[Rfam]
RNA sequence: AAGACCUUUUAAAUAAGUCCAGAGAGGCUAAGAAGGGUGUAAAGGCUGAGUUCAUAAAUUUUCUUAGGAUAAAUUAUGGACAUAGUCUUAUGUAACUGCACCCUGAUCAAUCUGAUCGGGGUAUUUUUUUA
Numbered sequence: 001a002a003g004a005c006c007u008u009u010u011a012a013a014u015a016a017g018u019c020c021a022g023a024g025a026g027g028c029u030a031a032g033a034a035g036g037g038u039g040u041a042a043a044g045g046c047u048g049a050g051u052u053c054a055u056a057a058a059u060u061u062u063c064u065u066a067g068g069a070u071a072a073a074u075u076a077u078g079g080a081c082a083u084a085g086u087c088u089u090a091u092g093u094a095a096c097u098g099c100a101c102c103c104u105g106a107u108c109a110a111u112c113u114g115a116u117c118g119g120g121g122u123a124u125u126u127u128u129u130u131a
Base pairs, nucleotide, nucleotide: 003038005036006035007034008033009032014031016029017028018027019026050081051080052079053078054077055076056075057074059072060071062069063068098124100122101121102120103119104118105117106116107115108114109113
The family of this 131-nucleotide sequence from Bacillus sp. MRMR6 is "PyrR binding site". Gene Ontology terms of the family: pyrimidine nucleobase biosynthetic process and pyrimidine nucleobase transport. This family represents the PyrR binding site and terminator structure. This RNA structure is found upstream of a variety of genes involved in pyrimidine biosynthesis and transport. The alignment also includes a portion of the antiterminator structure. A search with the family's covariance model found it, with a score of 65 bits.